[Rfam]
RNA sequence: UUACAUGCAGUGCUGGGGCAACUAAAACUCUGAGUUCUGUUAGCAUCAAAGUUUUUUACCCUGGCUCAGCAUGGA
Numbered sequence: 001u002u003a004c005a006u007g008c009a010g011u012g013c014u015g016g017g018g019c020a021a022c023u024a025a026a027a028c029u030c031u032g033a034g035u036u037c038u039g040u041u042a043g044c045a046u047c048a049a050a051g052u053u054u055u056u057u058a059c060c061c062u063g064g065c066u067c068a069g070c071a072u073g074g075a
Stems, first nucleotide, its partner, number of pairs: 001075002004073004010067001012065006020057002024055006031048003034044002
The family of this 75-nucleotide RNA from Branchiostoma floridae is "mir-4872 microRNA precursor family".
Gene Ontology terms of the family: RISC complex and miRNA-mediated post-transcriptional gene silencing.
The family's consensus secondary structure was predicted with RNAalifold.
Lineage of the source: Eukaryota > Cephalochordata > Leptocardii > Branchiostomatidae > Branchiostoma.